[Rfam]
RNA sequence: GGAUGUGAGGGUGAUCUGGCUGCGACAUCUGUCACCCCAUUGAUCACCAGGGUUGAUUCAGCUGAUCUGGCUGGCUAGGCAGGUGUCCCCUUCCUCCCUCACCGCUCCAUGUGCAUCCCUCCUGAAGCUGUGCGCUCAGUCAAAGAGGACGACCUUCCCUGAUAAAGAUGUACCAUUCAUCGGUCAAGGGUAUACGAUAGCUGCGCUCCCCUGCUAGAACCUCCGAAGUUACUUUAUAAUCAAUUUGGUUUUGGGUCUCUGAUGAUGCAUAAAACUAUGCAGAAAUAAUCAAAGACCUGAUUUCACAUGGAAGUCUUGAUUACUUU
Number, nucleotide and partner (000 for none) at each position: 001g108002g107003a106004u000005g102006u101007g100008a099009g098010g097011g096012u000013g093014a092015u000016c000017u000018g090019g089020c000021u000022g000023c000024g087025a086026c085027a084028u083029c082030u081031g080032u079033c078034a000035c074036c073037c070038c069039a068040u000041u000042g067043a066044u065045c064046a000047c061048c000049a000050g000051g000052g000053u000054u000055g000056a000057u000058u000059c000060a000061g047062c000063u000064g045065a044066u043067c042068u039069g038070g037071c000072u000073g036074g035075c000076u000077a000078g033079g032080c031081a030082g029083g028084u027085g026086u025087c024088c000089c019090c018091u000092u014093c013094c000095u000096c011097c010098c009099u008100c007101a006102c005103c000104g000105c000106u003107c002108c001109a000110u000111g000112u000113g000114c000115a000116u000117c170118c000119c167120u166121c000122c139123u138124g137125a136126a000127g135128c134129u000130g000131u000132g000133c000134g128135c127136u125137c124138a123139g122140u162141c161142a160143a000144a000145g000146a000147g158148g157149a156150c000151g000152a000153c000154c000155u000156u149157c148158c147159c000160u142161g141162a140163u000164a000165a000166a120167g119168a000169u000170g117171u000172a000173c000174c000175a000176u000177u000178c000179a000180u000181c000182g000183g000184u000185c000186a000187a000188g000189g000190g000191u000192a000193u000194a000195c000196g000197a000198u000199a000200g268201c267202u000203g000204c000205g000206c000207u261208c000209c000210c000211c000212u000213g260214c000215u000216a000217g000218a000219a000220c000221c255222u254223c253224c000225g000226a000227a250228g249229u248230u247231a246232c000233u000234u000235u000236a000237u000238a000239a000240u000241c000242a000243a000244u000245u000246u231247g230248g229249u228250u227251u000252u000253g223254g222255g221256u000257c000258u000259c000260u213261g207262a000263u000264g000265a000266u000267g201268c200269a000270u000271a000272a000273a000274a000275c000276u000277a000278u000279g000280c000281a000282g000283a000284a000285a000286u000287a000288a000289u000290c000291a326292a325293a324294g000295a321296c000297c000298u318299g317300a314301u313302u312303u311304c310305a000306c000307a000308u000309g000310g304311a303312a302313g301314u300315c000316u000317u299318g298319a000320u000321u295322a000323c000324u293325u292326u291
Annotation: A member of the RNA family "7SK RNA" from Rhinopomastus cyanomelas, 326 nucleotides long. Taxonomically the source falls in Rhinopomastus (Eukaryota, Opisthokonta, Archelosauria, Dinosauria). Rfam 15.1 lists 49,373 matches to the family in 668 species. Clan: 7SK clan. 7SK was discovered as an abundant small nuclear RNA in the mid-70s but a possible function has only recently been suggested. Two independent studies have found that 7SK RNA binds the CDK9/cyclin T complex (known as elongation factor P-TEFb). P-TEFb activates transcription by phosphorylating the C-terminal domain of RNA polymerase II. This process is negatively regulated by the 7SK RNP. The secondary structure of 7SK RNA shown here was proposed by Wasserman and Steitz on the basis of chemical modification and enzymatic cleavage experiments.